[Rfam]
RNA: PhotoRC-II RNA
RNA sequence: AAACAAUCGUAACCCUGACUACAACUGCUCUCAAACCAAGACCUAUAGGCAGUAUAAUACUUCGUCUUUCAUAUCCAGUAGUGAGGGAUUACUGGAAAUAAGUUUCGCUU
Numbered sequence: 001a002a003a004c005a006a007u008c009g010u011a012a013c014c015c016u017g018a019c020u021a022c023a024a025c026u027g028c029u030c031u032c033a034a035a036c037c038a039a040g041a042c043c044u045a046u047a048g049g050c051a052g053u054a055u056a057a058u059a060c061u062u063c064g065u066c067u068u069u070c071a072u073a074u075c076c077a078g079u080a081g082u083g084a085g086g087g088a089u090u091a092c093u094g095g096a097a098a099u100a101a102g103u104u105u106c107g108c109u110u
Stems, first nucleotide, its partner, number of pairs: 015052003019048003038068005074096007